[Rfam]
Rfam assigns this 75-nucleotide sequence from Tetracentron sinense to the family "Plastid-ycf2 5UTR RNA".

RNA sequence: GUGCAUCCAACAUGAAUUGAACCUAUGAAUUUGUAAAUUAUGAGUUGGGCGCUUUAACAAUUCAGCCAUGGAUGU
Numbered sequence: 001g002u003g004c005a006u007c008c009a010a011c012a013u014g015a016a017u018u019g020a021a022c023c024u025a026u027g028a029a030u031u032u033g034u035a036a037a038u039u040a041u042g043a044g045u046u047g048g049g050c051g052c053u054u055u056a057a058c059a060a061u062u063c064a065g066c067c068a069u070g071g072a073u074g075u
Stems, first nucleotide, its partner, number of pairs: 003075006010026001012024001014022001040069003044066006
NCBI's taxonomy places the organism under Eukaryota, Euphyllophyta, Spermatophyta, Trochodendraceae, Tetracentron. By type it is a cis-regulatory element. About the family: Plastid ycf2 is a non-coding RNA (ncRNA) recognised in plastids. It was found in the prime untranslated region (5UTR) of ycf2 genes, it presents a tRNA-like motif which suggests it can be involved in mRNA maturation, particularly involved in defining the precise 5' end of the transcript.